[Rfam]
Nucleotides: 129
Stems, first nucleotide, its partner, number of pairs: 005125006017029003031109002033098002035048004043096002052073002078094005100112003
Number, partner (000 for none) and nucleotide at each position: 001000g002000u003000a004000g005125u006124u007123c008122u009121u010120c011000a012000g013000g014000g015000c016000a017029g018028g019027g020000u021000g022000c023000a024000a025000c026000c027019c028018c029017c030000u031109a032108c033098c034097g035048g036047c037046g038045g039000u040000a041000c042000a043096g044095c045038c046037c047036g048035c049000g050000a051000c052073c053072c054000g055000c056000u057000g058000g059000g060000a061000g062000c063000u064000u065000u066000c067000c068000c069000c070000g071000c072053g073052g074000c075000u076000g077000a078094u079093c080092c081091g082090g083000u084000u085000u086000g087000a088000u089000u090082c091081c092080g093079g094078a095044g096043c097034c098033g099000a100112c101111a102110g103000u104000u105000a106000c107000a108032g109031u110102c111101u112100g113000g114000a115000u116000g117000g118000a119000a120010g121009a122008a123007g124006a125005a126000a127000c128000u129000a
This 129-nucleotide RNA sequence from Butyricicoccus porcorum belongs to the Rfam family "FMN riboswitch aptamer (RFN element)".
NCBI's taxonomy places the organism under Bacteria, Bacillota, Clostridia, Eubacteriales, Butyricicoccus.
A search with the family's covariance model found it, with a score of 107 bits.
Rfam's curators write: The RFN element is a highly conserved domain that is found frequently in the 5'-untranslated regions of prokaryotic mRNAs that encode for flavin mononucleotide (FMN) biosynthesis and transport proteins.